Shown here is a 244-nucleotide sequence from Aquarana catesbeiana, a member of the family "Small nucleolar RNA SNORA53". From the family's description: The snoRNA ACA53 belongs to the H/ACA family of pseudouridylation guide snoRNAs. The family's consensus secondary structure was predicted with RNAalifold. Gene Ontology terms of the family: RNA processing and nucleolus.
[Rfam]
RNA sequence: AACAUGCUCCCUUAGAUCCACCUUUGUGGGUGUUUUAAUGUGUUCUGAGUUCAGCUGGAUCAAUCUAGCAGUUCCAGUUCAGUGUCACCCAGCAACUUGUUUGGUUGUACAGUCAAAGGUGCUUGAGUCAUUGGCAUGUAAGAAUAAUAUACCUUCAUCUUGGUCAUUAUGUUCUGUUGGCAGUGGUUUCAGUGUUUUGCUGUACCACUUCUCACCAACAGGACUUGGCUAGUAUGAGGACAGG
Number, nucleotide and partner (000 for none) at each position: 001a000002a139003c138004a137005u136006g135007c134008u133009c000010c000011c127012u126013u125014a124015g123016a000017u000018c000019c121020a120021c119022c118023u117024u116025u115026g114027u091028g090029g089030g088031u087032g086033u000034u000035u000036u000037a083038a000039u081040g080041u000042g000043u000044u000045c077046u076047g075048a000049g074050u000051u000052c071053a000054g069055c068056u000057g000058g065059a000060u000061c000062a000063a000064u000065c058066u000067a000068g055069c054070a000071g052072u000073u000074c049075c047076a046077g045078u000079u000080c040081a039082g000083u037084g000085u000086c032087a031088c030089c029090c028091a027092g108093c107094a106095a105096c104097u103098u000099g000100u000101u000102u000103g097104g096105u095106u094107g093108u092109a000110c000111a000112g000113u000114c026115a025116a024117a023118g022119g021120u020121g019122c000123u015124u014125g013126a012127g011128u000129c000130a000131u000132u000133g008134g007135c006136a005137u004138g003139u002140a000141a000142g000143a000144a000145u000146a000147a000148u000149a000150u000151a000152c000153c239154u238155u237156c236157a235158u000159c000160u232161u000162g230163g229164u228165c227166a000167u000168u000169a000170u000171g000172u000173u222174c221175u220176g219177u218178u217179g216180g215181c000182a000183g000184u214185g213186g212187u000188u000189u000190c202191a201192g200193u000194g000195u000196u000197u000198u000199g000200c192201u191202g190203u000204a000205c000206c000207a000208c000209u000210u000211c000212u186213c185214a184215c180216c179217a178218a177219c176220a175221g174222g173223a000224c000225u000226u000227g165228g164229c163230u162231a000232g160233u000234a000235u157236g156237a155238g154239g153240a000241c000242a000243g000244g000